The record is a 256-nucleotide part of an RNA from Entamoeba invadens, which matches "Eukaryotic large subunit ribosomal RNA" in Rfam. On this family, see Yusupov et al., Science 2001: "Crystal structure of the ribosome at 5.5 A resolution".

RNA sequence: GAGUCUAACAUUGGAGCGAAUAGGAAGGGAAGAAAACCCAGAUAUGAAGCGAAAACGAAGGACUAAACAUAUAGCAGGAGUGACCUAGAAAAGGCUAGAGUUAAACUGUUGGGACCCGAAAGAUGGUGAACUAUGCUUGUGGUGUUUGAAGCCGAAGGAAACUUUGGUGAAAGGACUUAGGAGUGUUAACGUGCAAAUUACUUGCAAUAUAUGAGUAUAGGGGCGAAAGACUAAUCGAACUAUCUAGUAGCUGGUU
Numbered sequence: 001g002a003g004u005c006u007a008a009c010a011u012u013g014g015a016g017c018g019a020a021u022a023g024g025a026a027g028g029g030a031a032g033a034a035a036a037c038c039c040a041g042a043u044a045u046g047a048a049g050c051g052a053a054a055a056c057g058a059a060g061g062a063c064u065a066a067a068c069a070u071a072u073a074g075c076a077g078g079a080g081u082g083a084c085c086u087a088g089a090a091a092a093g094g095c096u097a098g099a100g101u102u103a104a105a106c107u108g109u110u111g112g113g114a115c116c117c118g119a120a121a122g123a124u125g126g127u128g129a130a131c132u133a134u135g136c137u138u139g140u141g142g143u144g145u146u147u148g149a150a151g152c153c154g155a156a157g158g159a160a161a162c163u164u165u166g167g168u169g170a171a172a173g174g175a176c177u178u179a180g181g182a183g184u185g186u187u188a189a190c191g192u193g194c195a196a197a198u199u200a201c202u203u204g205c206a207a208u209a210u211a212u213g214a215g216u217a218u219a220g221g222g223g224c225g226a227a228a229g230a231c232u233a234a235u236c237g238a239a240c241u242a243u244c245u246a247g248u249a250g251c252u253g254g255u256u
Base pairs, nucleotide, nucleotide: 005112006111007110008109009108010107012105015102016101017100020045021044022043027038028037049056067081068080070078084094086091115254116253118251122244123243124242125241126240127239131220132219133218134217135216136215137214138213139212140211141210142208144176145175146174147173151168152167153166154165155164156163157162180205182203183202185201186200188199189198222232223231
The sequence is in the family's curated seed alignment. Rfam links the family to the GO terms ribosome and structural constituent of ribosome. NCBI's taxonomy places the organism under Eukaryota, Evosea, Archamoebae, Mastigamoebida, Entamoeba.